[Rfam]
RNA sequence: AAAAUAAGCUAGGGGUGCAGAUGCUGAGAUAGAACGAUGUUCUUACCCUCAUUACUUGAACCGGGCAAUACCGGCGGAAGGAAGCAUAUUUAGAAAACC
Numbered sequence: 001a002a003a004a005u006a007a008g009c010u011a012g013g014g015g016u017g018c019a020g021a022u023g024c025u026g027a028g029a030u031a032g033a034a035c036g037a038u039g040u041u042c043u044u045a046c047c048c049u050c051a052u053u054a055c056u057u058g059a060a061c062c063g064g065g066c067a068a069u070a071c072c073g074g075c076g077g078a079a080g081g082a083a084g085c086a087u088a089u090u091u092a093g094a095a096a097a098c099c
Stems, first nucleotide, its partner, number of pairs: 006087001008085003011049004017024002031043005055080003061074004
The family of this 99-nucleotide sequence from Butyrivibrio sp. XB500-5 is "TPP riboswitch aptamer (THI element)". Taxonomically the source falls in Butyrivibrio (Bacteria, Bacillati, Clostridia, Lachnospirales). A search with the family's covariance model found it, with a score of 62 bits. Pairs were carried over by alignment from the consensus structure, which is taken from published work. The family has 115 seed sequences and 16,130 matches in Rfam 15.1.